[Rfam]
RNA sequence: AAUUGAAAAUUUCUCCGAGCCUUUUUGCCUAAAGGAUAUAUCUCACGGCAAACAGGCCGCUGGGUGUGGCGGGAAACGGUCAUGCCUCCCUUAUGGAAAGGAGACAAUAGCGGCAGAGC
Numbered sequence: 001a002a003u004u005g006a007a008a009a010u011u012u013c014u015c016c017g018a019g020c021c022u023u024u025u026u027g028c029c030u031a032a033a034g035g036a037u038a039u040a041u042c043u044c045a046c047g048g049c050a051a052a053c054a055g056g057c058c059g060c061u062g063g064g065u066g067u068g069g070c071g072g073g074a075a076a077c078g079g080u081c082a083u084g085c086c087u088c089c090c091u092u093a094u095g096g097a098a099a100g101g102a103g104a105c106a107a108u109a110g111c112g113g114c115a116g117a118g119c
Stems, first nucleotide, its partner, number of pairs: 003113002012104005019057004024052006034043003062087009072077001088096002

Background: Shown here is a 119-nucleotide RNA from Pelotomaculum isophthalicicum, a member of the family "Molybdenum/Tungsten riboswitch aptamer (Moco RNA motif)". Pairs were carried over by alignment from the consensus structure, which is taken from published work. A search with the family's covariance model found it, with a score of 81 bits. Rfam 15.1 lists 1,248 matches to the family in 836 species.